Shown here is a 128-nucleotide RNA sequence from Hibiscus syriacus, a member of the family "mir-393 microRNA precursor family". The pairing is the family consensus, mapped onto this sequence. On this family, see Kruszka et al., J Plant Physiol 2012: "Role of microRNAs and other sRNAs of plants in their changing environments". Lineage of the source: Eukaryota > Viridiplantae > eudicotyledons > malvids > Hibiscus. A search with the family's covariance model found it, with a score of 68 bits. Gene Ontology terms of the family: RISC complex and miRNA-mediated post-transcriptional gene silencing.
RNA sequence: GAUGGAAAAUUCCGAAGGGAUCGCAUGAUCCAAUGACUGAACCGAAUCAACAAACUAUAAUAAUCGAUUCAUUUAUUCAGACGAAGCCAUCAACAUUAGAUCAAUGCGAUCCCUUUGGAGCUCUCCAC
Numbered sequence: 001g002a003u004g005g006a007a008a009a010u011u012c013c014g015a016a017g018g019g020a021u022c023g024c025a026u027g028a029u030c031c032a033a034u035g036a037c038u039g040a041a042c043c044g045a046a047u048c049a050a051c052a053a054a055c056u057a058u059a060a061u062a063a064u065c066g067a068u069u070c071a072u073u074u075a076u077u078c079a080g081a082c083g084a085a086g087c088c089a090u091c092a093a094c095a096u097u098a099g100a101u102c103a104a105u106g107c108g109a110u111c112c113c114u115u116u117g118g119a120g121c122u123c124u125c126c127a128c
Stems, first nucleotide, its partner, number of pairs: 003127004008122001010120012023107003026103005035094001